[Rfam]
RNA sequence: CGACGUUCUCAGGGCGGGGUGCAAUUCCCCACCGGCGGUAAUGGCUUCUGGCCUAGCCCGCGAGCGCCUGGUACGGCUCCAGCCAUCCAGGGACAAGCAGACCCGGUGUGAUCCCGGGGCCGACGGUCAUAGUCCGGAUGAGAGAGAACGGGA
Numbered sequence: 001c002g003a004c005g006u007u008c009u010c011a012g013g014g015c016g017g018g019g020u021g022c023a024a025u026u027c028c029c030c031a032c033c034g035g036c037g038g039u040a041a042u043g044g045c046u047u048c049u050g051g052c053c054u055a056g057c058c059c060g061c062g063a064g065c066g067c068c069u070g071g072u073a074c075g076g077c078u079c080c081a082g083c084c085a086u087c088c089a090g091g092g093a094c095a096a097g098c099a100g101a102c103c104c105g106g107u108g109u110g111a112u113c114c115c116g117g118g119g120c121c122g123a124c125g126g127u128c129a130u131a132g133u134c135c136g137g138a139u140g141a142g143a144g145a146g147a148a149c150g151g152g153a
Base pairs, nucleotide, nucleotide: 004150005149006148007147008146009145010144017029018028019027031133032132033122034121035061036060037059038058056120057119064098065097102118103117104116105115106114124136125135126134
RNA: FMN riboswitch aptamer (RFN element)